[Rfam]
RNA sequence: UUCUUAUCGUGAGAGGUGGAGGGACUGGCCCUUUGAAACCUCAGCAACCGGUAUGCAUCACUUCAUGUGAUGUACCAAGGUGCUAAAUCCAGCAAGCAGCUUUUUUGCUUGGAAGAUAAGAG
Numbered sequence: 001u002u003c004u005u006a007u008c009g010u011g012a013g014a015g016g017u018g019g020a021g022g023g024a025c026u027g028g029c030c031c032u033u034u035g036a037a038a039c040c041u042c043a044g045c046a047a048c049c050g051g052u053a054u055g056c057a058u059c060a061c062u063u064c065a066u067g068u069g070a071u072g073u074a075c076c077a078a079g080g081u082g083c084u085a086a087a088u089c090c091a092g093c094a095a096g097c098a099g100c101u102u103u104u105u106u107g108c109u110u111g112g113a114a115g116a117u118a119a120g121a122g
Base pairs, nucleotide, nucleotide: 001122002121003120004119005118006117007116008115013042014041015040016039017038021031022030023029025092026091027090028089043084044083045082046081048080049079050076051075052074053073054072055071088114093111094110095109096108097107098106
Dot-bracket structure: ((((((((....(((((...(((.[[[[)))......)))))((((.((((((((...............))))))..))))))...(]]]]((((((.......))))))..)))))))))

This 122-nucleotide RNA belongs to the Rfam family "SAM riboswitch aptamer (S box leader)".